[Rfam]
RNA sequence: CGUGACACUUCGAGAUUAUGUUAGAUCAUUACUUUAAAAUUAAAAGAUAUAUAAAUUUUAAGGUGAUGACCUGCUACAAUUUUAGAGUGUCAU
Numbered sequence: 001c002g003u004g005a006c007a008c009u010u011c012g013a014g015a016u017u018a019u020g021u022u023a024g025a026u027c028a029u030u031a032c033u034u035u036a037a038a039a040u041u042a043a044a045a046g047a048u049a050u051a052u053a054a055a056u057u058u059u060a061a062g063g064u065g066a067u068g069a070c071c072u073g074c075u076a077c078a079a080u081u082u083u084a085g086a087g088u089g090u091c092a093u
Stems, first nucleotide, its partner, number of pairs: 003092007012083006019076002022073003026069016
Record summary
Shown here is a 93-nucleotide RNA from Gossypium raimondii, a member of the family "MIR8675 microRNA precursor family". Lineage of the source: Eukaryota > Tracheophyta > Magnoliopsida > Gunneridae > Gossypium. The base pairs follow the family's consensus structure, which was predicted with RNAalifold.